[Rfam]
RNA sequence: AUGGAAUUGAUGAAUAUUUCCCCAAAUGAUCGAAGCUGAACAAACUGAGCGAUCUUUCUCUCUAUUGAGAGCCAAGCCAGAAUUCUGAUCCAU
Numbered sequence: 001a002u003g004g005a006a007u008u009g010a011u012g013a014a015u016a017u018u019u020c021c022c023c024a025a026a027u028g029a030u031c032g033a034a035g036c037u038g039a040a041c042a043a044a045c046u047g048a049g050c051g052a053u054c055u056u057u058c059u060c061u062c063u064a065u066u067g068a069g070a071g072c073c074a075a076g077c078c079a080g081a082a083u084u085c086u087g088a089u090c091c092a093u
Base pairs, nucleotide, nucleotide: 001093002092003091004090005089
Small nucleolar RNA Z103: a 93-nucleotide sequence from Hevea brasiliensis.
Gene Ontology terms of the family: nucleolus and RNA processing.
It is annotated as a C/D-box small nucleolar RNA.
The literature on the family includes a 2003 paper in Nucleic Acids Res by Chen et al., "The high diversity of snoRNAs in plants: identification and comparative study of 120 snoRNA genes from Oryza sativa".